RNA: Small nucleolar RNA SNORA44
Organism: Sciurus vulgaris
RNA sequence: AAGUACAAGUCAGGAUGUGGCGAGUUGUGGCCAUGGAAACUCCAACUACAUGCAUCAACAACCAGGAAAGGCGUUGACAGCUCAGGCCAACACUAUAGCUGCAGCUUCUAUUUGGCUUUCCUCUAAUG
Number, nucleotide and partner (000 for none) at each position: 001a000002a000003g000004u000005a000006c035007a000008a000009g000010u000011c000012a000013g032014g031015a000016u029017g028018u027019g026020g000021c000022g000023a000024g000025u000026u019027g018028u017029g016030g000031c014032c013033a000034u000035g006036g000037a000038a000039a000040c000041u000042c000043c000044a000045a000046c000047u000048a000049c000050a000051u000052g000053c000054a000055u000056c000057a000058a000059c000060a000061a000062c000063c000064a000065g121066g120067a119068a118069a117070g116071g000072c000073g000074u000075u000076g000077a000078c000079a000080g108081c000082u000083c101084a100085g099086g000087c000088c000089a000090a000091c000092a000093c000094u000095a000096u000097a000098g000099c085100u084101g083102c000103a000104g000105c000106u000107u000108c080109u000110a000111u000112u000113u000114g000115g000116c070117u069118u068119u067120c066121c065122u000123c000124u000125a000126a000127u000128g000